[Rfam]
RNA sequence: AUCAUGAUACUUCCGUCCAGUCACAGCCCCCUUUGACCAGGGGAUCACGCAAUGAGGGCGGCGGCCGGAGAACCUGGCCGGGGUUAGAAUCCCAUGA
Numbered sequence: 001a002u003c004a005u006g007a008u009a010c011u012u013c014c015g016u017c018c019a020g021u022c023a024c025a026g027c028c029c030c031c032u033u034u035g036a037c038c039a040g041g042g043g044a045u046c047a048c049g050c051a052a053u054g055a056g057g058g059c060g061g062c063g064g065c066c067g068g069a070g071a072a073c074c075u076g077g078c079c080g081g082g083g084u085u086a087g088a089a090u091c092c093c094a095u096g097a
Base pairs, nucleotide, nucleotide: 012094013061014060015059016058017057018056062080063079064078066076067075068074081093082092083091